[Rfam]
RNA sequence: GCACUGAAAACUCAUCCUUUUUCUGCUGUGCAGUGCAGAGGGAGGUAAUUGAGUGCUAGAGAAAUGCAGAGGAAAUCCAGACAGAGCAUGUUCUUACCUUGUGUUCUGUCCCUACACCUCAGCCACAUGC
Number, nucleotide and partner (000 for none) at each position: 001g056002c055003a054004c053005u052006g000007a000008a000009a000010a000011c000012u000013c045014a000015u043016c042017c041018u000019u000020u000021u039022u038023c000024u000025g000026c000027u000028g000029u000030g000031c000032a000033g000034u000035g000036c000037a000038g022039a021040g000041g017042g016043a015044g000045g013046u000047a000048a000049u000050u000051g000052a005053g004054u003055g002056c001057u000058a000059g000060a000061g000062a000063a000064a000065u000066g123067c122068a000069g120070a119071g118072g000073a000074a000075a000076u000077c000078c000079a000080g110081a109082c108083a107084g106085a105086g104087c000088a000089u000090g000091u000092u000093c000094u000095u000096a000097c000098c000099u000100u000101g000102u000103g000104u086105u085106c084107u083108g082109u081110c080111c000112c000113u000114a000115c000116a000117c000118c071119u070120c069121a000122g067123c066124c000125a000126c000127a000128u000129g000130c000
The record is a 130-nucleotide sequence from Xenopus laevis, which matches "Small nucleolar RNA SNORA55" in Rfam. Lineage of the source: Eukaryota > Craniata > Vertebrata > Teleostomi > Xenopus. Gene Ontology terms of the family: RNA processing and nucleolus. The base pairs follow the family's consensus structure, which was predicted with PFOLD. Rfam describes the family as follows. ACA55 is a member of the H/ACA class of snoRNA that guide the sites of modification of uridines to pseudouridines.